The family of this 138-nucleotide RNA from Galemys pyrenaicus is "Small nucleolar RNA SNORA8".
It scores 128 bits against the family's covariance model.
The family has 5 seed sequences and 1,490 matches in Rfam 15.1.
ACA8 is a member of the H/ACA class of snoRNA that guide the sites of modification of uridines to pseudouridines.
RNA sequence: UGCACUGCUUGGUAUCUGCACGCAGCAGUGUAUUCCUGCUGGGUGUUCAAAGGCCAGUGCAAUAGCAGCUCAGUAUCUGGCAUCGUUGGUUUUCUUGGCUCCGUGCACGUAAAGCCUGGUAUUUCUACUGAUACAUUA
Numbered sequence: 001u002g003c004a005c006u007g008c009u010u011g012g013u014a015u016c017u018g019c020a021c022g023c024a025g026c027a028g029u030g031u032a033u034u035c036c037u038g039c040u041g042g043g044u045g046u047u048c049a050a051a052g053g054c055c056a057g058u059g060c061a062a063u064a065g066c067a068g069c070u071c072a073g074u075a076u077c078u079g080g081c082a083u084c085g086u087u088g089g090u091u092u093u094c095u096u097g098g099c100u101c102c103g104u105g106c107a108c109g110u111a112a113a114g115c116c117u118g119g120u121a122u123u124u125c126u127a128c129u130g131a132u133a134c135a136u137u138a
Stems, first nucleotide, its partner, number of pairs: 002060006015053003018046004023041006063127003067123002070119004080106004